[Rfam]
RNA: Selenocysteine insertion sequence 4
RNA sequence: GGGACCUGCACCCGCUGCGGCGCAGCGAUGGUCAAAGA
Dot-bracket structure: ....((......((((((...))))))..)).......
Numbered sequence: 001g002g003g004a005c006c007u008g009c010a011c012c013c014g015c016u017g018c019g020g021c022g023c024a025g026c027g028a029u030g031g032u033c034a035a036a037g038a
Stems, first nucleotide, its partner, number of pairs: 005031002013027006